[Rfam]
RNA sequence: CUGACAGAAGAGAGUGAGCACACACUAGGAAUUGCAUAGUGUGUAUGCCUUUGUUGGUGGGUGCUCACUUCUCUUUCUGUCAG
Numbered sequence: 001c002u003g004a005c006a007g008a009a010g011a012g013a014g015u016g017a018g019c020a021c022a023c024a025c026u027a028g029g030a031a032u033u034g035c036a037u038a039g040u041g042u043g044u045a046u047g048c049c050u051u052u053g054u055u056g057g058u059g060g061g062u063g064c065u066c067a068c069u070u071c072u073c074u075u076u077c078u079g080u081c082a083g
Stems, first nucleotide, its partner, number of pairs: 001083009010073003013069009023059003
RNA: mir-156 microRNA precursor family